About this RNA
Rfam assigns this 379-nucleotide RNA from Rathayibacter sp. Leaf296 to the family "Bacterial RNase P class A". Its family is annotated with tRNA processing, dimeric ribonuclease P complex and ribonuclease P activity in the Gene Ontology. The source organism's lineage runs through Bacteria, Actinomycetes, Micrococcales, Microbacteriaceae and Rathayibacter. The base pairs follow the family's consensus structure, which is taken from published work. Rfam classes the family as a ribozyme.

[Rfam]
RNA sequence: CGGGUCGGCAAGACGGCCGCGUCGCCGGAGCGAGAGCCCCGGCGCCGAGGAACGUCCGGGCUCCGCAGAGCAGGGCGGUGGGCAACACCCACCCGGGGCGACCCGCGAGACAGUGCCACAGAGAACAGACCGCCACGGGCUCCGGCCCGCGGUAAGGGUGAAACGGUGGUGUAAGAGACCACCAGGGGCCGGAGUGAUCCGGUCCGCUCGGUAAACCUCGCCCGGAGCAAGGUCAGACAGAGGACGAUGCGGCUGCUCGUCGGGUCCUCGGGUAGACCGCUGGAGGGUCGCGGUGACGCGACUCCGAGAGAGAUGGCCGUCCAGCGCCCGCCGAGAGGCGCGGCGUGAACAGAACCCGGCGUAUCAGCCGGCCCCUUCG
Dot-bracket structure: .((((((((.((((((((.((.((((((..........)))))).))....[[[.[[[[[((((...[[[[.((((((((((.....)))))(((((....)))).)((...(((((............(((((.(((((....))))).)))..)).......((((((.......)))))).(((((((((....)))))))).)..)))..)))))))))))))...((((.....((((((....((((.]]]])))).)))))).....))))......((((((((....))))))))..........))))))).................................]]]]]]]].)..)))))))).....
Numbered sequence: 001c002g003g004g005u006c007g008g009c010a011a012g013a014c015g016g017c018c019g020c021g022u023c024g025c026c027g028g029a030g031c032g033a034g035a036g037c038c039c040c041g042g043c044g045c046c047g048a049g050g051a052a053c054g055u056c057c058g059g060g061c062u063c064c065g066c067a068g069a070g071c072a073g074g075g076c077g078g079u080g081g082g083c084a085a086c087a088c089c090c091a092c093c094c095g096g097g098g099c100g101a102c103c104c105g106c107g108a109g110a111c112a113g114u115g116c117c118a119c120a121g122a123g124a125a126c127a128g129a130c131c132g133c134c135a136c137g138g139g140c141u142c143c144g145g146c147c148c149g150c151g152g153u154a155a156g157g158g159u160g161a162a163a164c165g166g167u168g169g170u171g172u173a174a175g176a177g178a179c180c181a182c183c184a185g186g187g188g189c190c191g192g193a194g195u196g197a198u199c200c201g202g203u204c205c206g207c208u209c210g211g212u213a214a215a216c217c218u219c220g221c222c223c224g225g226a227g228c229a230a231g232g233u234c235a236g237a238c239a240g241a242g243g244a245c246g247a248u249g250c251g252g253c254u255g256c257u258c259g260u261c262g263g264g265u266c267c268u269c270g271g272g273u274a275g276a277c278c279g280c281u282g283g284a285g286g287g288u289c290g291c292g293g294u295g296a297c298g299c300g301a302c303u304c305c306g307a308g309a310g311a312g313a314u315g316g317c318c319g320u321c322c323a324g325c326g327c328c329c330g331c332c333g334a335g336a337g338g339c340g341c342g343g344c345g346u347g348a349a350c351a352g353a354a355c356c357c358g359g360c361g362u363a364u365c366a367g368c369c370g371g372c373c374c375c376u377u378c379g
Stems, first nucleotide, its partner, number of pairs: 002374008011364001012321007020047002023044006052362003056359005061227004068258004073223005078092005093107001094105004108218002113216002115212003130157002132153003136149005165183006185207001186205008231278004240269006250262004285304008